FMN riboswitch aptamer (RFN element): a 132-nucleotide RNA sequence from Pelotomaculum schinkii. Rfam's curators write: The RFN element is a highly conserved domain that is found frequently in the 5'-untranslated regions of prokaryotic mRNAs that encode for flavin mononucleotide (FMN) biosynthesis and transport proteins. This element is a metabolite-dependent riboswitch that directly binds FMN in the absence of proteins.

RNA sequence: GUGGACCUUCAGGGACGGGUGUAAUUCCCUACCGGCGGUAUGGCUGCCAAGCCGAGCCCGCGAGCCCUUGCAUGGGGCUGAUCCGGUGAGAUGCCGGGGCCGACAGUAAAGUCUGGAUGGGAGAAGGUGGAA
Numbered sequence: 001g002u003g004g005a006c007c008u009u010c011a012g013g014g015a016c017g018g019g020u021g022u023a024a025u026u027c028c029c030u031a032c033c034g035g036c037g038g039u040a041u042g043g044c045u046g047c048c049a050a051g052c053c054g055a056g057c058c059c060g061c062g063a064g065c066c067c068u069u070g071c072a073u074g075g076g077g078c079u080g081a082u083c084c085g086g087u088g089a090g091a092u093g094c095c096g097g098g099g100c101c102g103a104c105a106g107u108a109a110a111g112u113c114u115g116g117a118u119g120g121g122a123g124a125a126g127g128u129g130g131a132a
Stems, first nucleotide, its partner, number of pairs: 005128006017029003031112002033102002035061004056100002064078003082098005104115003

Record summary: The match comes from Rfam's covariance-model search (116 bits). Lineage of the source: Bacteria > Bacillati > Bacillota > Desulfotomaculaceae > Pelotomaculum.